About this RNA
Shown here is a 130-nucleotide RNA from Pogona vitticeps, a member of the family "Small nucleolar RNA SNORA22". Taxonomically the source falls in Pogona (Eukaryota, Vertebrata, Euteleostomi, Squamata). The family's RNA type in Rfam is H/ACA-box small nucleolar RNA. Its family is annotated with RNA processing and nucleolus in the Gene Ontology. It scores 94 bits against the family's covariance model. The family has 31 seed sequences and 883 matches in Rfam 15.1.
RNA sequence: UUGCACAAUGAACAGCCAAGCGAGCUCUCUAGUUCCCUUGGCAUAACUCUGUGCUAGAAUAAGCUGUGCUUUACCCUCUGCAUUGGAAGGAUUUUUCCCUUUUAUAUGUAUUCAAAAGGACAGUACAAGC
Numbered sequence: 001u002u003g004c005a006c007a008a009u010g011a012a013c014a015g016c017c018a019a020g021c022g023a024g025c026u027c028u029c030u031a032g033u034u035c036c037c038u039u040g041g042c043a044u045a046a047c048u049c050u051g052u053g054c055u056a057g058a059a060u061a062a063g064c065u066g067u068g069c070u071u072u073a074c075c076c077u078c079u080g081c082a083u084u085g086g087a088a089g090g091a092u093u094u095u096u097c098c099c100u101u102u103u104a105u106a107u108g109u110a111u112u113c114a115a116a117a118g119g120a121c122a123g124u125a126c127a128a129g130c
Base pairs, nucleotide, nucleotide: 003054004053005052006051007050010048014044016041017040018039019038020037022035024033025032026031056072057071058070060068061067077116079114080113081108082107083106085103086102087101088100089099090098
The base pairs follow the family's consensus structure, which was predicted with RNAfold. Rfam describes the family as follows. ACA22 is a member of the H/ACA class of snoRNA that guide the sites of modification of uridines to pseudouridines.